[Rfam]
RNA sequence: GGGUUCUCCAGCAACUGACGAAUGCGCGAGUCGAACUUGUCGACUUGUAGAUCGUCAAUGUCCGAUCGAACCGCAGUCAAUGAUGGCUGCGGACCGACUACGGGAGAGAACGCUGAGCGUCACCAC
Numbered sequence: 001g002g003g004u005u006c007u008c009c010a011g012c013a014a015c016u017g018a019c020g021a022a023u024g025c026g027c028g029a030g031u032c033g034a035a036c037u038u039g040u041c042g043a044c045u046u047g048u049a050g051a052u053c054g055u056c057a058a059u060g061u062c063c064g065a066u067c068g069a070a071c072c073g074c075a076g077u078c079a080a081u082g083a084u085g086g087c088u089g090c091g092g093a094c095c096g097a098c099u100a101c102g103g104g105a106g107a108g109a110a111c112g113c114u115g116a117g118c119g120u121c122a123c124c125a126c
Base pairs, nucleotide, nucleotide: 001046002045003044004043005042008039010037011036071092072091073090074089075088076087077086078085079084
RNA: atpB RNA
Organism: Rhodococcus sp. AD45